RNA sequence: CCACUACGGAAAUGCCUGCCGACGUCGUCGGCGACAUGCCCAGGUAGCCCGCGGUCAUUGAGGCUACGGCGCAGCACGCUGCGCUGACCGCUACCCGUUCGCCCCGCAUCCUGGCCGCGAACGAUCACCGCUGCUGCGGUGAUGGAUGC
Numbered sequence: 001c002c003a004c005u006a007c008g009g010a011a012a013u014g015c016c017u018g019c020c021g022a023c024g025u026c027g028u029c030g031g032c033g034a035c036a037u038g039c040c041c042a043g044g045u046a047g048c049c050c051g052c053g054g055u056c057a058u059u060g061a062g063g064c065u066a067c068g069g070c071g072c073a074g075c076a077c078g079c080u081g082c083g084c085u086g087a088c089c090g091c092u093a094c095c096c097g098u099u100c101g102c103c104c105c106g107c108a109u110c111c112u113g114g115c116c117g118c119g120a121a122c123g124a125u126c127a128c129c130g131c132u133g134c135u136g137c138g139g140u141g142a143u144g145g146a147u148g149c
Base pairs, nucleotide, nucleotide: 012037013036014035015033018032019031020030021029022028023027044067045066046065047064048063049062053089054088055087056086068085069084070083071082072081073080074079117149118148119147124143125142126141127140128139129138130137131136
The family of this 149-nucleotide RNA sequence from Delftia acidovorans is "radC RNA".
Rfam's curators put it in the seed alignment.
The family has 148 seed sequences and 500 matches in Rfam 15.1.
By type it is a cis-regulatory element.